[Rfam]
RNA: Group II catalytic intron D1-D4-6
Nucleotides: 228
Base pairs, nucleotide, nucleotide: 012038013037014036015035016034019032020031021030022029025194027193040093042091043090046087047086048085049084050082051081052077053076055074056073057072058071059070060069062067113222116219117218118217119216120215121214136213137212138211139210140209141208142168143167144166147162148161149160150159173207174206175205176204177203179201180200181199182198183197
Number, partner (000 for none) and nucleotide at each position: 001000c002000g003000a004000a005000a006000c007000c008000c009000g010000c011000u012038c013037g014036g015035c016034c017000a018000a019032g020031g021030g022029u023000g024000a025194g026000c027193c028000c029022g030021c031020c032019c033000g034016g035015g036014c037013c038012g039000a040093u041000a042091g043090c044000g045000a046087g047086c048085c049084u050082u051081g052077c053076g054000a055074c056073g057072g058071c059070c060069g061000c062067g063000g064000u065000g066000a067062c068000a069060u070059g071058g072057u073056c074055g075000g076053c077052g078000a079000u080000g081051c082050g083000u084049a085048g086047g087046u088000a089000c090043g091042c092000g093040a094000g095000c096000a097000u098000g099000u100000g101000g102000g103000c104000c105000g106000u107000g108000g109000c110000a111000g112000u113222g114000u115000a116219g117218c118217c119216u120215c121214g122000a123000a124000a125000a126000c127000u128000a129000u130000g131000a132000g133000a134000u135000u136213c137212c138211g139210g140209g141208u142168g143167c144166c145000c146000a147162g148161g149160g150159u151000g152000u153000a154000g155000a156000a157000a158000g159150g160149c161148c162147u163000g164000a165000a166144g167143g168142c169000g170000a171000c172000g173207g174206c175205g176204g177203a178000u179201c180200c181199u182198c183197c184000g185000c186000a187000c188000a189000g190000c191000g192000g193027g194025c195000g196000a197183g198182g199181g200180g201179g202000u203177u204176c205175c206174g207173c208141a209140c210139c211138c212137g213136g214121c215120g216119g217118g218117g219116u220000c221000u222113u223000u224000g225000a226000u227000c228000a